Shown here is a 146-nucleotide sequence from Paraburkholderia sp. BL23I1N1, a member of the family "Group II catalytic intron D1-D4-7". A reference for the family is Bonen and Vogel (2001), "The ins and outs of group II introns", Trends Genet. Group II introns are found in rRNA, tRNA and mRNA of organelles in fungi, plants and protists, and also in mRNA in bacteria.
RNA sequence: CCGGUCGUUCCGUCGACCGUAGCCUACCGGUGCAUGCGUUGUUGGUAACGACGACGUGUGAAGCCACCGGGACAACGUGGCUGGCCUCUGGCCUAGCUGUCUCCGUGAGGAGAGAUAACGCCUGCGAGCUUUCCUCGACCGGGUCC
Numbered sequence: 001c002c003g004g005u006c007g008u009u010c011c012g013u014c015g016a017c018c019g020u021a022g023c024c025u026a027c028c029g030g031u032g033c034a035u036g037c038g039u040u041g042u043u044g045g046u047a048a049c050g051a052c053g054a055c056g057u058g059u060g061a062a063g064c065c066a067c068c069g070g071g072a073c074a075a076c077g078u079g080g081c082u083g084g085c086c087u088c089u090g091g092c093c094u095a096g097c098u099g100u101c102u103c104c105g106u107g108a109g110g111a112g113a114g115a116u117a118a119c120g121c122c123u124g125c126g127a128g129c130u131u132u133c134c135u136c137g138a139c140c141g142g143g144u145c146c
Stems, first nucleotide, its partner, number of pairs: 002019006028069005033060012083093004094117002097114001103110002123137002126134001
Dot-bracket structure: .((((((......))))))........(((((((((((((((((....))))))))))))....))))).............((((...))))((.(.....((....))...).)).....((.(.......).)).........